A member of the RNA family "Small nucleolar RNA U6-53/MBII-28" from Geotrypetes seraphini, 117 nucleotides long. The pairing is the family consensus, mapped onto this sequence. By type it is a C/D-box small nucleolar RNA.
[Rfam]
RNA sequence: UGCCUGUGAUGAGUUGCCAUGCUAAUACCGACACAUCAGUCAGGGAAGACUUUAUUCUUCCUGCAUUGGAUGUGAGUGAGUUGAACUCAACUUCAAUUGCUCUGAAACCUGAGGCAG
Numbered sequence: 001u002g003c004c005u006g007u008g009a010u011g012a013g014u015u016g017c018c019a020u021g022c023u024a025a026u027a028c029c030g031a032c033a034c035a036u037c038a039g040u041c042a043g044g045g046a047a048g049a050c051u052u053u054a055u056u057c058u059u060c061c062u063g064c065a066u067u068g069g070a071u072g073u074g075a076g077u078g079a080g081u082u083g084a085a086c087u088c089a090a091c092u093u094c095a096a097u098u099g100c101u102c103u104g105a106a107a108c109c110u111g112a113g114g115c116a117g
Stems, first nucleotide, its partner, number of pairs: 001116004041063005